[Rfam]
RNA sequence: GCCAAGAUGUAGCGUUUAUCUGCAUUUGCACCUGCACCUUCUUGUUUUCAUUUGGUUCACUUCAGCACCUUCAGCCUCAGAAACCAAAGCAUAGCAGAUGGGUUUGUGGUGGCAGGUGGAGGAAGAUAGAACCAAGCAAAGAGGUGCAGAUGUAGGUGCAGGUGAAUGCCAUUUUGGC
Dot-bracket structure: (((((((((..((.((((((((((((((((.((((((((......................................................................................................)))))))).)))))))))))))))).)))))))))))
The record is a 178-nucleotide RNA from Durio zibethinus, which matches "MIR530 microRNA precursor family" in Rfam. Rfam 15.1 lists 119 matches to the family in 78 species. On this family, see Lu et al., Plant J 2008: "Stress-responsive microRNAs in Populus". The match comes from Rfam's covariance-model search (94 bits). Taxonomically the source falls in Durio (Eukaryota, Tracheophyta, Magnoliopsida, rosids). Gene Ontology terms of the family: miRNA-mediated post-transcriptional gene silencing and RISC complex.